Notes
A member of the RNA family "Bacterial RNase P class A" from Anaerovibrio lipolyticus, 352 nucleotides long.

RNA sequence: UGAGCGUGAAAGACAAUCGCUGACGAUUUACUUCGUUUGAGGAAAGUCCGGGCUCCACAGGGCAGUGUGCUGGAUAACGUCCAGCGAGGGUGACCUUAGGGAAAGUGUCAUAGAAAAGGAAACCGCCUGGUUCGCCAGGUAAGGGUGGAAAGGUGCGGUAAGAGCGCACCAGCAGUCAGGUGACUGGCUGGCUUGAUAAACCCCACAUGGAGCAAGACCGAAUAGGGAAGGGUAUGAGGCGGCCCGCUGACCUUCCGGGUGUGUCGCUAGAGCUGUCAGGCAACUGGCAGUCCAGAUAAAUGAUUGUCACCGCUUCGGCGGAACAGAACUCGGCUUAUUGAUCACUCAUAGC
Numbered sequence: 001u002g003a004g005c006g007u008g009a010a011a012g013a014c015a016a017u018c019g020c021u022g023a024c025g026a027u028u029u030a031c032u033u034c035g036u037u038u039g040a041g042g043a044a045a046g047u048c049c050g051g052g053c054u055c056c057a058c059a060g061g062g063c064a065g066u067g068u069g070c071u072g073g074a075u076a077a078c079g080u081c082c083a084g085c086g087a088g089g090g091u092g093a094c095c096u097u098a099g100g101g102a103a104a105g106u107g108u109c110a111u112a113g114a115a116a117a118g119g120a121a122a123c124c125g126c127c128u129g130g131u132u133c134g135c136c137a138g139g140u141a142a143g144g145g146u147g148g149a150a151a152g153g154u155g156c157g158g159u160a161a162g163a164g165c166g167c168a169c170c171a172g173c174a175g176u177c178a179g180g181u182g183a184c185u186g187g188c189u190g191g192c193u194u195g196a197u198a199a200a201c202c203c204c205a206c207a208u209g210g211a212g213c214a215a216g217a218c219c220g221a222a223u224a225g226g227g228a229a230g231g232g233u234a235u236g237a238g239g240c241g242g243c244c245c246g247c248u249g250a251c252c253u254u255c256c257g258g259g260u261g262u263g264u265c266g267c268u269a270g271a272g273c274u275g276u277c278a279g280g281c282a283a284c285u286g287g288c289a290g291u292c293c294a295g296a297u298a299a300a301u302g303a304u305u306g307u308c309a310c311c312g313c314u315u316c317g318g319c320g321g322a323a324c325a326g327a328a329c330u331c332g333g334c335u336u337a338u339u340g341a342u343c344a345c346u347c348a349u350a351g352c
Base pairs, nucleotide, nucleotide: 001348002347003346004345006343010339011338012308013307014306015305016304017303018302020039022037023036024035025034026033044336045335046334048333049332050331051330052329053212054211055210056209060245061244062243063242065208066207067206068205069204070084071083072082073081074080085099086097087096088095089094100203101202105201106200107197108196109195123144124143125140126139127138128137129136130135152170153169154168155167156166157165172192173190174189175188176187177186178185179184216265217264218263226256227255228254229253230252231251238248239247240246272291273290274289275288276287277286278285279284
Rfam classes the family as a ribozyme. The family's consensus secondary structure is taken from published work. Rfam describes the family as follows. Ribonuclease P (RNase P) is a ubiquitous endoribonuclease, found in archaea, bacteria and eukarya as well as chloroplasts and mitochondria. The match comes from Rfam's covariance-model search (287 bits).